[Rfam]
RNA sequence: CCGAGAUAGGCGUACAAAUCUUGCCAAAGGCAUUUCCCUGGACGUUAGCGAUGAUCCGAAAGGUAGCGACGACUCUCGGCGUCCAGAGGUGGCGAGUUCCGAUCUAGAGGGAUGCCACCCGGAC
Numbered sequence: 001c002c003g004a005g006a007u008a009g010g011c012g013u014a015c016a017a018a019u020c021u022u023g024c025c026a027a028a029g030g031c032a033u034u035u036c037c038c039u040g041g042a043c044g045u046u047a048g049c050g051a052u053g054a055u056c057c058g059a060a061a062g063g064u065a066g067c068g069a070c071g072a073c074u075c076u077c078g079g080c081g082u083c084c085a086g087a088g089g090u091g092g093c094g095a096g097u098u099c100c101g102a103u104c105u106a107g108a109g110g111g112a113u114g115c116c117a118c119c120c121g122g123a124c
Base pairs, nucleotide, nucleotide: 001079002078003077004076005075006074007072009070010045011044012043013042015040016039022032023031024030025029048067049066056063057062082123083122086120088119089118090117091116092115093114094113100107
Dot-bracket structure: (((((((.(((((.((.....((((...))))......)).))))..((......((....))..))..).).))))))..((..(.(((((((.....(......).....)))))))).)).
Shown here is a 124-nucleotide RNA sequence, a member of the family "Flavobacterium-1 RNA". The sequence is in the family's curated seed alignment.